[Rfam]
Nucleotides: 074
Base pairs, nucleotide, nucleotide: 003074004073005072006071007070008069010026011025012024013023014022040068041067042066044065046063047062048061
Number, partner (000 for none) and nucleotide at each position: 001000a002000u003074g004073c005072a006071u007070c008069u009000a010026g011025u012024a013023g014022g015000a016000a017000u018000u019000g020000a021000g022014c023013c024012u025011a026010c027000g028000a029000a030000u031000u032000u033000u034000c035000c036000a037000a038000u039000u040068a041067u042066g043000a044065g045000u046063u047062g048061g049000g050000c051000c052000c053000u054000u055000a056000a057000c058000c059000a060000a061048u062047c063046a064000u065044c066042c067041a068040u069008g070007g071006a072005u073004g074003c
Annotation: This 74-nucleotide RNA from Capsicum annuum belongs to the Rfam family "Plastid-ycf2 5UTR RNA". The match comes from Rfam's covariance-model search (71 bits). Lineage of the source: Eukaryota > Streptophytina > Gunneridae > Solanoideae > Capsicum. Rfam's curators write: Plastid ycf2 is a non-coding RNA (ncRNA) recognised in plastids. It was found in the prime untranslated region (5UTR) of ycf2 genes, it presents a tRNA-like motif which suggests it can be involved in mRNA maturation, particularly involved in defining the precise 5' end of the transcript. For this family Rfam cites "Retrograde signaling in plants: A critical review focusing on the GUN pathway and beyond" (Richter et al., Plant Commun, 2023). Pairs were carried over by alignment from the consensus structure, which was predicted with LocARNA.